The record is a 210-nucleotide sequence from Sphingomonas xinjiangensis, which matches "permuted transfer-messenger RNA" in Rfam.
It scores 122 bits against the family's covariance model.
On this family, see Williams and Bartel, RNA 1996: "Phylogenetic analysis of tmRNA secondary structure".
Pairs were carried over by alignment from the consensus structure, which is taken from published work.
RNA sequence: GGGGAUAAACGAAGGCGUGCAAUAGACGCAGCGGACCCGGGGGCGGUACCCGGCGGCUCCACCAUAAUCCUCGCGAAAGCGGGGCUCAUGAUGGGGCCGAACUAGGAUCGACGUGUGUUGAAAAGCGCUAUCUAUCUCUCAGCGUGGGCCACUGUGACGGUCUGAAACACAAGUGCCAACGAUAACGAAGCACUCGCUAUUGCGGCCUAA
Numbered sequence: 001g002g003g004g005a006u007a008a009a010c011g012a013a014g015g016c017g018u019g020c021a022a023u024a025g026a027c028g029c030a031g032c033g034g035a036c037c038c039g040g041g042g043g044c045g046g047u048a049c050c051c052g053g054c055g056g057c058u059c060c061a062c063c064a065u066a067a068u069c070c071u072c073g074c075g076a077a078a079g080c081g082g083g084g085c086u087c088a089u090g091a092u093g094g095g096g097c098c099g100a101a102c103u104a105g106g107a108u109c110g111a112c113g114u115g116u117g118u119u120g121a122a123a124a125g126c127g128c129u130a131u132c133u134a135u136c137u138c139u140c141a142g143c144g145u146g147g148g149c150c151a152c153u154g155u156g157a158c159g160g161u162c163u164g165a166a167a168c169a170c171a172a173g174u175g176c177c178a179a180c181g182a183u184a185a186c187g188a189a190g191c192a193c194u195c196g197c198u199a200u201u202g203c204g205g206c207c208u209a210a
Stems, first nucleotide, its partner, number of pairs: 001139005014129004027117003031114003037053005054099007140154003